c-di-AMP riboswitch aptamer (ydaO/yuaA leader): a 140-nucleotide RNA from Tumebacillus flagellatus. A search with the family's covariance model found it, with a score of 92 bits. Rfam links the family to the GO terms cyclic-di-AMP binding and regulation of gene expression. About the family: This family represents a conserved RNA structure found upstream of the ydaO and yuaA genes in Bacillus subtilis and related genes in other bacteria.
[Rfam]
RNA sequence: AAACUUAACAAGCCGAAUCCUCACUUUCGAAGAGGAACGGAGGACCCAAUCUUGGGGUGAACCCGCGACAACACGUCAGCGGGCGGGAACCUUCUUCCCGAAUCCGUCAGCUAACUCCGCAGGCUUUUAGAAGGGAAGUG
Numbered sequence: 001a002a003a004c005u006u007a008a009c010a011a012g013c014c015g016a017a018u019c020c021u022c023a024c025u026u027u028c029g030a031a032g033a034g035g036a037a038c039g040g041a042g043g044a045c046c047c048a049a050u051c052u053u054g055g056g057g058u059g060a061a062c063c064c065g066c067g068a069c070a071a072c073a074c075g076u077c078a079g080c081g082g083g084c085g086g087g088a089a090c091c092u093u094c095u096u097c098c099c100g101a102a103u104c105c106g107u108c109a110g111c112u113a114a115c116u117c118c119g120c121a122g123g124c125u126u127u128u129a130g131a132a133g134g135g136a137a138g139u140g
Stems, first nucleotide, its partner, number of pairs: 011125004018036005038119005047054002055105003063082004085099004